[Rfam]
RNA sequence: AAAGCCCGCAAGGCCGACGGCAUCCGCCGCCGCUGGUGCAAGUCCAGCCGCCUAUAUGGCGGGCGCUCAUGGGCAAGAA
Numbered sequence: 001a002a003a004g005c006c007c008g009c010a011a012g013g014c015c016g017a018c019g020g021c022a023u024c025c026g027c028c029g030c031c032g033c034u035g036g037u038g039c040a041a042g043u044c045c046a047g048c049c050g051c052c053u054a055u056a057u058g059g060c061g062g063g064c065g066c067u068c069a070u071g072g073g074c075a076a077g078a079a
Base pairs, nucleotide, nucleotide: 004074005073006072007071013064014063015062018029019028020027032048033047034046035045049061050060051059052058

The record is a 79-nucleotide RNA sequence, which matches "Twister_sister_ribozyme" in Rfam. The family's consensus secondary structure is taken from published work. The literature on the family includes a 2015 paper in Nat Chem Biol by Weinberg et al., "New classes of self-cleaving ribozymes revealed by comparative genomics analysis".